Coronavirus frameshifting stimulation element: a 75-nucleotide RNA from Alphacoronavirus nyctali. Rfam classes the family as a frameshift element. On this family, see Zhang et al., bioRxiv 2020: "Cryo-electron Microscopy and Exploratory Antisense Targeting of the 28-kDa Frameshift Stimulation Element from the SARS-CoV-2 RNA Genome". About the family: This family represents a conserved stem-loop found in Coronaviruses which can promote ribosomal frameshifting. This family interacts with a downstream region to form a pseudoknot structure, the region varies according to the virus but pseudoknot formation is known to stimulate frameshifting.
[Rfam]
RNA sequence: GAGUACGGGGCUCUAGUGCAGCUCGACUAGAGCCCUGUAAUGGUUCCGAAACGGACCAUGUUGUGCGUGCUUUUG
Numbered sequence: 001g002a003g004u005a006c007g008g009g010g011c012u013c014u015a016g017u018g019c020a021g022c023u024c025g026a027c028u029a030g031a032g033c034c035c036u037g038u039a040a041u042g043g044u045u046c047c048g049a050a051a052c053g054g055a056c057c058a059u060g061u062u063g064u065g066c067g068u069g070c071u072u073u074u075g
Base pairs, nucleotide, nucleotide: 008035009034010033011032012031013030014029015028016027020071021070022069024067037061041053043052044051045050